[Rfam]
RNA sequence: AGGUCAUUUCAAAGAGGGCUUGUGGAACUGCGAGACCAGGAGCUCUUUACGCUGUGACCUAAGAUUAAAGUUCUCCACAGAAUGAAUGCCACAGUCACUCAAUAAGUGGGCUGUUUUUUCCUGAGGAGAGACAGGA
Numbered sequence: 001a002g003g004u005c006a007u008u009u010c011a012a013a014g015a016g017g018g019c020u021u022g023u024g025g026a027a028c029u030g031c032g033a034g035a036c037c038a039g040g041a042g043c044u045c046u047u048u049a050c051g052c053u054g055u056g057a058c059c060u061a062a063g064a065u066u067a068a069a070g071u072u073c074u075c076c077a078c079a080g081a082a083u084g085a086a087u088g089c090c091a092c093a094g095u096c097a098c099u100c101a102a103u104a105a106g107u108g109g110g111c112u113g114u115u116u117u118u119u120c121c122u123g124a125g126g127a128g129a130g131a132c133a134g135g136a
Stems, first nucleotide, its partner, number of pairs: 002059006014047008023039001072129005079122002082119001091114004096108004
Rfam assigns this 136-nucleotide sequence from Trichechus manatus to the family "Small nucleolar RNA SNORA25". Rfam 15.1 lists 1,129 matches to the family in 449 species. Rfam's curators write: ACA25 is a member of the H/ACA class of snoRNA that guide the sites of modification of uridines to pseudouridines. The family's RNA type in Rfam is H/ACA-box small nucleolar RNA. Lineage of the source: Eukaryota > Opisthokonta > Trichechidae > Trichechus > Trichechus manatus. Rfam links the family to the GO terms RNA processing and nucleolus.